[Rfam]
RNA sequence: AACUACAUAGGGCACACUAAUCGAAAGAUUAGGCCGCAAAGCUUAGGAAUCUAAAGGUCGUCAGGCCCAUGAUCGUCCGGCUGCAUUU
Number, nucleotide and partner (000 for none) at each position: 001a000002a000003c000004u000005a000006c000007a000008u000009a000010g000011g000012g037013c036014a000015c000016a000017c032018u031019a030020a029021u028022c027023g000024a000025a000026a000027g022028a021029u020030u019031a018032g017033g000034c000035c000036g013037c012038a000039a000040a082041g081042c080043u079044u000045a000046g078047g077048a076049a073050u072051c071052u000053a000054a000055a000056g067057g066058u065059c064060g000061u000062c000063a000064g059065g058066c057067c056068c000069a000070u000071g051072a050073u049074c000075g000076u048077c047078c046079g043080g042081c041082u040083g000084c000085a000086u000087u000088u000
A member of the RNA family "c-di-GMP-I riboswitch aptamer" from Paenibacillus dendritiformis, 88 nucleotides long. Pairs were carried over by alignment from the consensus structure, which is taken from published work. Lineage of the source: Bacteria > Bacillati > Bacillota > Bacilli > Paenibacillus dendritiformis.